[Rfam]
A member of the RNA family "gltS RNA" from Vibrio metschnikovii, 106 nucleotides long. Pairs were carried over by alignment from the consensus structure, which is taken from published work. It is annotated as a cis-regulatory element. Lineage of the source: Bacteria > Pseudomonadati > Pseudomonadota > Vibrionaceae > Vibrio metschnikovii.
RNA sequence: UAUCACUAAGGAUUGUUUUUCUCACACUAUAUAUUUCCUGUGAGAGACGGAAGGGAUGCGAGUCGGUCAGCAUAGAUCGAUUUAAAUGGAUAACAAUAAGGAUAGA
Numbered sequence: 001u002a003u004c005a006c007u008a009a010g011g012a013u014u015g016u017u018u019u020u021c022u023c024a025c026a027c028u029a030u031a032u033a034u035u036u037c038c039u040g041u042g043a044g045a046g047a048c049g050g051a052a053g054g055g056a057u058g059c060g061a062g063u064c065g066g067u068c069a070g071c072a073u074a075g076a077u078c079g080a081u082u083u084a085a086a087u088g089g090a091u092a093a094c095a096a097u098a099a100g101g102a103u104a105g106a
Stems, first nucleotide, its partner, number of pairs: 020045007062081007